[Rfam]
RNA: Small nucleolar RNA snoR109
Organism: Sesamum indicum
RNA sequence: CGGCUGUAGUCCUAUUUAUUAAUAGGGAGAAGUUGUCUGGCCGGUGGCUGUUUCUGUCGACAUAUCUGCUUACCGAACUUCUCACAUCU
Numbered sequence: 001c002g003g004c005u006g007u008a009g010u011c012c013u014a015u016u017u018a019u020u021a022a023u024a025g026g027g028a029g030a031a032g033u034u035g036u037c038u039g040g041c042c043g044g045u046g047g048c049u050g051u052u053u054c055u056g057u058c059g060a061c062a063u064a065u066c067u068g069c070u071u072a073c074c075g076a077a078c079u080u081c082u083c084a085c086a087u088c089u
Stems, first nucleotide, its partner, number of pairs: 027083008039070003043066004047061001049059002